The record is a 107-nucleotide RNA from Armatimonas rosea, which matches "NiCo (Nickel/Cobalt) riboswitch aptamer" in Rfam.
Rfam links the family to the GO terms metal ion homeostasis and cobalt ion binding.
On this family, see Furukawa et al., Mol Cell 2015: "Bacterial riboswitches cooperatively bind Ni(2+) or Co(2+) ions and control expression of heavy metal transporters".
RNA sequence: AGAAUCUUCACAGAUCAGGCGGCUUGUGGGUAGCUCCGAUAAGUGCAGCCGGGCCUCUCUCUAAAACGAAUGAGAGGCAGCAGGACACCAAGCCCUGUGGGACUGAC
Numbered sequence: 001a002g003a004a005u006c007u008u009c010a011c012a013g014a015u016c017a018g019g020c021g022g023c024u025u026g027u028g029g030g031u032a033g034c035u036c037c038g039a040u041a042a043g044u045g046c047a048g049c050c051g052g053g054c055c056u057c058u059c060u061c062u063a064a065a066a067c068g069a070a071u072g073a074g075a076g077g078c079a080g081c082a083g084g085a086c087a088c089c090a091a092g093c094c095c096u097g098u099g100g101g102a103c104u105g106a107c
Stems, first nucleotide, its partner, number of pairs: 011105003016101001018050003022044006053078007080098005